RNA sequence: GAUCUGAUAGUAUGGUAGAAAGAAAUAGAUGAAUCUUUCUACCAUACUCUCUAUUCGUCUUAUUGUAGUGUAUAAAGUUG
Numbered sequence: 001g002a003u004c005u006g007a008u009a010g011u012a013u014g015g016u017a018g019a020a021a022g023a024a025a026u027a028g029a030u031g032a033a034u035c036u037u038u039c040u041a042c043c044a045u046a047c048u049c050u051c052u053a054u055u056c057g058u059c060u061u062a063u064u065g066u067a068g069u070g071u072a073u074a075a076a077g078u079u080g
Base pairs, nucleotide, nucleotide: 006051007050009048010047011046012045013044014043015042016041017040018039019038020037021036022035023034

A member of the RNA family "Plastid-psbM 3UTR RNA", 80 nucleotides long. The base pairs follow the family's consensus structure, which was predicted with LocARNA. Plastid psbM is a non-coding RNA (ncRNA) recognised in plastids. It was found in the three prime untranslated region (3UTR) of psbM gene, its 3UTR location suggests a role in transcript maturation.